A member of the RNA family "mir-489 microRNA precursor family" from Bos taurus, 82 nucleotides long. For this family Rfam cites "Cloning and expression of new microRNAs from zebrafish" (Kloosterman et al., Nucleic Acids Res, 2006). Pairs were carried over by alignment from the consensus structure, which was predicted with RNAalifold. It is one of the family's seed sequences.
RNA sequence: GUGGCAGCUUGGUGGUCGUAUGUGUGGCGCCAUCUACUGGAACGUUUAGGAGUGACAUCACAUAUAUGGCGACUAAACUGCU
Numbered sequence: 001g002u003g004g005c006a007g008c009u010u011g012g013u014g015g016u017c018g019u020a021u022g023u024g025u026g027g028c029g030c031c032a033u034c035u036a037c038u039g040g041a042a043c044g045u046u047u048a049g050g051a052g053u054g055a056c057a058u059c060a061c062a063u064a065u066a067u068g069g070c071g072a073c074u075a076a077a078c079u080g081c082u
Base pairs, nucleotide, nucleotide: 003082004081005080006079007078015070016069017068018067019066020065021064022063024061025060026059027058029056031054032053033052037050038049